[Rfam]
RNA: Alphaproteobacterial sRNA ar35
RNA sequence: AUCGGCAUUGCUGAUGAGCGCUGAAAACCUUCUACGCUCGCAAAUGCCGCCGCUGCUUUUAACCUUUGACCAUGGAUGUACCGGCACUGGUGGACAAAGCGGCGAUGAGAGAGGUCGGAGCAACAUAGCCCCGGCCUUUUUUCGUC
Numbered sequence: 001a002u003c004g005g006c007a008u009u010g011c012u013g014a015u016g017a018g019c020g021c022u023g024a025a026a027a028c029c030u031u032c033u034a035c036g037c038u039c040g041c042a043a044a045u046g047c048c049g050c051c052g053c054u055g056c057u058u059u060u061a062a063c064c065u066u067u068g069a070c071c072a073u074g075g076a077u078g079u080a081c082c083g084g085c086a087c088u089g090g091u092g093g094a095c096a097a098a099g100c101g102g103c104g105a106u107g108a109g110a111g112a113g114g115u116c117g118g119a120g121c122a123a124c125a126u127a128g129c130c131c132c133g134g135c136c137u138u139u140u141u142u143c144g145u146c
Base pairs, nucleotide, nucleotide: 003049004048005047006046008043009042016039017038018037019036020035052103053102054101055100056099057098058097062091063090064089067086068085070084071083105145106144107143108142109141110139111138112137113136114135115134116133117132118131120129121128